[Rfam]
RNA sequence: CGCAUGGGGGCCGUCGCGAUCGCCUCGUGAGGCGCCAGCCCAAGCAUCGCGUCCACUCACCCCGGAUGGACGCCCAUG
Numbered sequence: 001c002g003c004a005u006g007g008g009g010g011c012c013g014u015c016g017c018g019a020u021c022g023c024c025u026c027g028u029g030a031g032g033c034g035c036c037a038g039c040c041c042a043a044g045c046a047u048c049g050c051g052u053c054c055a056c057u058c059a060c061c062c063c064g065g066a067u068g069g070a071c072g073c074c075c076a077u078g
Stems, first nucleotide, its partner, number of pairs: 005027005049073006
Shown here is a 78-nucleotide RNA sequence from Falsiroseomonas stagni, a member of the family "chrB-a RNA". Rfam classes the family as a cis-regulatory element. NCBI's taxonomy places the organism under Bacteria, Pseudomonadati, Pseudomonadota, Alphaproteobacteria, Falsiroseomonas stagni.